[Rfam]
RNA sequence: UUAGGAGUAGGAACCAACGCGUUAAGUGCCGCCGGAACGGAAUGUGAACGGUGGACGAAGACUCAGUCGCGGUGUUGGUUCCGCAUUCGCCUAG
Numbered sequence: 001u002u003a004g005g006a007g008u009a010g011g012a013a014c015c016a017a018c019g020c021g022u023u024a025a026g027u028g029c030c031g032c033c034g035g036a037a038c039g040g041a042a043u044g045u046g047a048a049c050g051g052u053g054g055a056c057g058a059a060g061a062c063u064c065a066g067u068c069g070c071g072g073u074g075u076u077g078g079u080u081c082c083g084c085a086u087u088c089g090c091c092u093a094g
Stems, first nucleotide, its partner, number of pairs: 001094005010082010020071003026056002029054006040088005060068003
RNA: THF (Tetrahydrofolate) riboswitch aptamer